[Rfam]
RNA sequence: CGGCUUCGGAGCAGCGCACUCCUCCUCCCAGCGCUUCUCCGAUCGGACUGACGGCACUCCUCCUCCCAGUCGUCAGUCACAUCAAACACGCCCACCGGACCUCCUCCCCCGGUGGGCGUUGUUG
Numbered sequence: 001c002g003g004c005u006u007c008g009g010a011g012c013a014g015c016g017c018a019c020u021c022c023u024c025c026u027c028c029c030a031g032c033g034c035u036u037c038u039c040c041g042a043u044c045g046g047a048c049u050g051a052c053g054g055c056a057c058u059c060c061u062c063c064u065c066c067c068a069g070u071c072g073u074c075a076g077u078c079a080c081a082u083c084a085a086a087c088a089c090g091c092c093c094a095c096c097g098g099a100c101c102u103c104c105u106c107c108c109c110c111g112g113u114g115g116g117c118g119u120u121g122u123u124g
Base pairs, nucleotide, nucleotide: 007041008040009039011037013035014034015033016032017031046078047077048076049075050074051073052072053071054070055069088119089118090117091116092115093114094113095112096111097110098109
RNA: Alphaproteobacterial ar14